The record is a 109-nucleotide RNA sequence from Homo sapiens, which matches "Y RNA" in Rfam.
RNA sequence: GGCUGGUCAGAAGGUAGUGAGUUAUCUCAAUUGUUCACAGUCAGUUACAGAUUGAACUCCCUGCUCUACUCUUUUCUCCCUUCUCACAGCUGCAUUUGACUAGGCUUUA
Numbered sequence: 001g002g003c004u005g006g007u008c009a010g011a012a013g014g015u016a017g018u019g020a021g022u023u024a025u026c027u028c029a030a031u032u033g034u035u036c037a038c039a040g041u042c043a044g045u046u047a048c049a050g051a052u053u054g055a056a057c058u059c060c061c062u063g064c065u066c067u068a069c070u071c072u073u074u075u076c077u078c079c080c081u082u083c084u085c086a087c088a089g090c091u092g093c094a095u096u097u098g099a100c101u102a103g104g105c106u107u108u109a
Base pairs, nucleotide, nucleotide: 001105003103004102005101006100007099008098010097011096014093015092017087018086019085020084021083040070043067044066

By type it is a non-coding RNA gene. The match comes from Rfam's covariance-model search (69 bits). The organism belongs to Homo, within Eukaryota.